[Rfam]
RNA sequence: UUUCAUUUGCAUAAUUGCAUUAUGGCGCUAUUUCGAAGUAGCGCUAUUUCGAAAUAGCGCCAUAAUGCAAUUAUGCAAAUGAAA
Numbered sequence: 001u002u003u004c005a006u007u008u009g010c011a012u013a014a015u016u017g018c019a020u021u022a023u024g025g026c027g028c029u030a031u032u033u034c035g036a037a038g039u040a041g042c043g044c045u046a047u048u049u050c051g052a053a054a055u056a057g058c059g060c061c062a063u064a065a066u067g068c069a070a071u072u073a074u075g076c077a078a079a080u081g082a083a084a
Stems, first nucleotide, its partner, number of pairs: 003082005009076017027058009